[Rfam]
The record is a 137-nucleotide sequence from Parafannyhessea umbonata, which matches "FMN riboswitch aptamer (RFN element)" in Rfam. The base pairs follow the family's consensus structure, which is taken from published work. The source organism's lineage runs through Bacteria, Actinomycetota, Coriobacteriales, Atopobiaceae and Parafannyhessea. The match comes from Rfam's covariance-model search (109 bits).
RNA sequence: UGUCAGUUUCAGGGCGGGGUGAGAUUCCCCACUGGCGGUAGGGGCAAGGCCCAAGUCCGCGCGCCGCAACAAAAAGAGCGGCUGACCUGGUCAAAGUCCAGGACCAACGGUUAUAGUCCGGAUGAAAGAAACGGAGG
Numbered sequence: 001u002g003u004c005a006g007u008u009u010c011a012g013g014g015c016g017g018g019g020u021g022a023g024a025u026u027c028c029c030c031a032c033u034g035g036c037g038g039u040a041g042g043g044g045c046a047a048g049g050c051c052c053a054a055g056u057c058c059g060c061g062c063g064c065c066g067c068a069a070c071a072a073a074a075a076g077a078g079c080g081g082c083u084g085a086c087c088u089g090g091u092c093a094a095a096g097u098c099c100a101g102g103a104c105c106a107a108c109g110g111u112u113a114u115a116g117u118c119c120g121g122a123u124g125a126a127a128g129a130a131a132c133g134g135a136g137g
Stems, first nucleotide, its partner, number of pairs: 003135002006132005017029003031117002033106002035060004055104002063082003086102005108120003